RNA sequence: GACGACCGGCUGGAUGCUCGCGUGUCCGGCCCACAAGUGGAGGCUCCGAUCUCCCACCUGACUGUCCCCCGGGACGGCGGGUCACCCCGGUCAGGCGGCCACCAUCGUUCCGUACGGACGAUGGAGUCGCCCGAAAGCGCGCCCCGCGUCAUCGCGGCGGUGCUCCGGUAGUGCAUUGGAGCCCCGCCUGUGAUCGUCCGGGGCAUUUUUC
Number, nucleotide and partner (000 for none) at each position: 001g000002a000003c000004g092005a091006c090007c089008g088009g087010c000011u000012g027013g026014a000015u000016g000017c000018u000019c000020g000021c000022g000023u000024g000025u000026c013027c012028g083029g082030c081031c080032c079033a000034c060035a059036a000037g057038u056039g055040g054041a052042g051043g000044c000045u000046c000047c000048g000049a000050u000051c042052u041053c000054c040055c039056a038057c037058c000059u035060g034061a000062c077063u076064g075065u074066c073067c072068c000069c000070c000071g000072g067073g066074a065075c064076g063077g062078c000079g032080g031081g030082u029083c028084a000085c000086c000087c009088c008089g007090g006091u005092c004093a000094g131095g130096c129097g000098g128099c000100c000101a000102c124103c123104a122105u121106c120107g119108u118109u117110c000111c000112g000113u000114a000115c000116g000117g109118a108119c107120g106121a105122u104123g103124g102125a000126g000127u000128c098129g096130c095131c094132c000133g000134a000135a000136a000137g000138c000139g000140c000141g204142c203143c202144c201145c200146g199147c196148g195149u000150c000151a000152u000153c192154g191155c190156g188157g187158c186159g185160g184161u000162g182163c181164u180165c179166c178167g000168g000169u000170a000171g000172u000173g000174c000175a000176u000177u000178g166179g165180a164181g163182c162183c000184c160185c159186g158187c157188c156189u000190g155191u154192g153193a000194u000195c148196g147197u000198c000199c146200g145201g144202g143203g142204c141205a000206u000207u000208u000209u000210u000211c000
RNA: Streptomyces RNA 1601